The family of this 90-nucleotide sequence from Camellia sinensis is "MIR2275 microRNA precursor family". The source organism's lineage runs through Eukaryota, Viridiplantae, Ericales, Theaceae and Camellia.
RNA sequence: AAAUUGUAUGUGAGAAUUGGAGGAAACCAAAUAGAUUGAUGUUGACUGUUUAAAUCUAUUUGGUUUUCUUCAAUAUCUCAUCUCCGACUU
Numbered sequence: 001a002a003a004u005u006g007u008a009u010g011u012g013a014g015a016a017u018u019g020g021a022g023g024a025a026a027c028c029a030a031a032u033a034g035a036u037u038g039a040u041g042u043u044g045a046c047u048g049u050u051u052a053a054a055u056c057u058a059u060u061u062g063g064u065u066u067u068c069u070u071c072a073a074u075a076u077c078u079c080a081u082c083u084c085c086g087a088c089u090u
Stems, first nucleotide, its partner, number of pairs: 004087003008083001011080004016074006023067008032058002